RNA sequence: CCCUGUAUCGAAAGUGAUCAUGGUGUGAUAGUUGCCAGGUCAUUGAUACGCAGGGAGAGUGAGUUGAAAGUCCCGUGUUUGCUGGAUUCUCCGUUCCUUACAAACCCUGUAUCUUUCAGACA
Numbered sequence: 001c002c003c004u005g006u007a008u009c010g011a012a013a014g015u016g017a018u019c020a021u022g023g024u025g026u027g028a029u030a031g032u033u034g035c036c037a038g039g040u041c042a043u044u045g046a047u048a049c050g051c052a053g054g055g056a057g058a059g060u061g062a063g064u065u066g067a068a069a070g071u072c073c074c075g076u077g078u079u080u081g082c083u084g085g086a087u088u089c090u091c092c093g094u095u096c097c098u099u100a101c102a103a104a105c106c107c108u109g110u111a112u113c114u115u116u117c118a119g120a121c122a
Stems, first nucleotide, its partner, number of pairs: 001055006008048001013044007022036004065118006077105005084097003
RNA: Small nucleolar RNA SNORA71